[Rfam]
RNA sequence: GUACUUCCUCUAUAAACUAAUAUAAAAGUGUUUAGAUCACUAAAAUAGUAAUCUAAACGCUUUUAUAUUAGUUUACAGAGGGAGUAC
Numbered sequence: 001g002u003a004c005u006u007c008c009u010c011u012a013u014a015a016a017c018u019a020a021u022a023u024a025a026a027a028g029u030g031u032u033u034a035g036a037u038c039a040c041u042a043a044a045a046u047a048g049u050a051a052u053c054u055a056a057a058c059g060c061u062u063u064u065a066u067a068u069u070a071g072u073u074u075a076c077a078g079a080g081g082g083a084g085u086a087c
Base pairs, nucleotide, nucleotide: 003085004084005083007081008080009079010078011077013075014074015073016072017071019069020068021067022066023065024064025063026062027061028060029059030058031057032056033055034054035053036052037051039049040048041047

The record is an 87-nucleotide sequence from Triticum aestivum, which matches "MIR1120/MIR1122 microRNA precursor family" in Rfam.
A search with the family's covariance model found it, with a score of 87 bits.
The family has 6 seed sequences and 44,765 matches in Rfam 15.1.